[Rfam]
RNA sequence: GGUCGUCUGACACCGCAUGGCAGGAGCGGGGGAACCAUUCUCCGGGCGUCGAGAGACGCCCUUGGGGUCAAGUCCUCCCGAGGACCUUCGGGUCCGAGCGAGGGCCGGGUAGUACCUCCCACCCGAACCCGACAGCUCACCUCGCAGGCGUCGAGAGGUAGCACGU
Numbered sequence: 001g002g003u004c005g006u007c008u009g010a011c012a013c014c015g016c017a018u019g020g021c022a023g024g025a026g027c028g029g030g031g032g033a034a035c036c037a038u039u040c041u042c043c044g045g046g047c048g049u050c051g052a053g054a055g056a057c058g059c060c061c062u063u064g065g066g067g068u069c070a071a072g073u074c075c076u077c078c079c080g081a082g083g084a085c086c087u088u089c090g091g092g093u094c095c096g097a098g099c100g101a102g103g104g105c106c107g108g109g110u111a112g113u114a115c116c117u118c119c120c121a122c123c124c125g126a127a128c129c130c131g132a133c134a135g136c137u138c139a140c141c142u143c144g145c146a147g148g149c150g151u152c153g154a155g156a157g158g159u160a161g162c163a164c165g166u
Base pairs, nucleotide, nucleotide: 004150005149006148007147013023026145027144028143029142030141031140036064037063065130066129067128073104074103075102076101107124108123109122110121
Rfam assigns this 166-nucleotide RNA sequence from Intrasporangium calvum to the family "c-di-AMP riboswitch aptamer (ydaO/yuaA leader)". It scores 58 bits against the family's covariance model. The source organism's lineage runs through Bacteria, Actinomycetota, Actinomycetes, Intrasporangiaceae and Intrasporangium calvum.